The record is a 132-nucleotide RNA from Larimichthys crocea, which matches "Small nucleolar RNA SNORA13" in Rfam. Taxonomically the source falls in Larimichthys (Eukaryota, Metazoa, Ctenosquamata, Sciaenidae). Clan: SNORA13 clan. The family has 50 seed sequences and 1,034 matches in Rfam 15.1. ACA13 is a member of the H/ACA class of snoRNA that guide the sites of modification of uridines to pseudouridines.
RNA sequence: UGCCUUUGUGUUGCCCUUUCAUUGUGUUCUUCAUGAACAGGGUGUCUACUAAGGCAUACAGUGACUCUUGUGGUUGUGACAGAAAUUCAUCAUCAUUGAUCUGUUUCUACACAGUCAACUGCAAGCACAAAU
Numbered sequence: 001u002g003c004c005u006u007u008g009u010g011u012u013g014c015c016c017u018u019u020c021a022u023u024g025u026g027u028u029c030u031u032c033a034u035g036a037a038c039a040g041g042g043u044g045u046c047u048a049c050u051a052a053g054g055c056a057u058a059c060a061g062u063g064a065c066u067c068u069u070g071u072g073g074u075u076g077u078g079a080c081a082g083a084a085a086u087u088c089a090u091c092a093u094c095a096u097u098g099a100u101c102u103g104u105u106u107c108u109a110c111a112c113a114g115u116c117a118a119c120u121g122c123a124a125g126c127a128c129a130a131a132u
Stems, first nucleotide, its partner, number of pairs: 002055005010046001012044004018037005067125004071117006081108003084104001